Rfam assigns this 75-nucleotide RNA sequence from Myotis brandtii to the family "mir-9223 microRNA precursor family".
RNA sequence: GGCAGUUCUCCGGUGACACACCCUGGAAUCGGGCUCCUUCCUCUCUGGUUCCGGGUGCGUCGCCCGAGAACUGCC
Numbered sequence: 001g002g003c004a005g006u007u008c009u010c011c012g013g014u015g016a017c018a019c020a021c022c023c024u025g026g027a028a029u030c031g032g033g034c035u036c037c038u039u040c041c042u043c044u045c046u047g048g049u050u051c052c053g054g055g056u057g058c059g060u061c062g063c064c065c066g067a068g069a070a071c072u073g074c075c
Stems, first nucleotide, its partner, number of pairs: 002074002005071006012064006019057005025052009

Its family is annotated with miRNA-mediated post-transcriptional gene silencing and RISC complex in the Gene Ontology. The family's consensus secondary structure was predicted with RNAalifold. It scores 91 bits against the family's covariance model.